[Rfam]
RNA sequence: UGCGGCCCCACGUGUGGUGUCAUCCUGCUGAACUCCCCCAGGACCGGAAGGUAGCAAGGGUAGGUGGGCUCUGGCAGGUGCACGUGGGGCUUUUAAC
Numbered sequence: 001u002g003c004g005g006c007c008c009c010a011c012g013u014g015u016g017g018u019g020u021c022a023u024c025c026u027g028c029u030g031a032a033c034u035c036c037c038c039c040a041g042g043a044c045c046g047g048a049a050g051g052u053a054g055c056a057a058g059g060g061u062a063g064g065u066g067g068g069c070u071c072u073g074g075c076a077g078g079u080g081c082a083c084g085u086g087g088g089g090c091u092u093u094u095a096a097c
Stems, first nucleotide, its partner, number of pairs: 004091011015078001018076005024068006035060003043052003
RNA: Bacterial small signal recognition particle RNA
Organism: Nesterenkonia cremea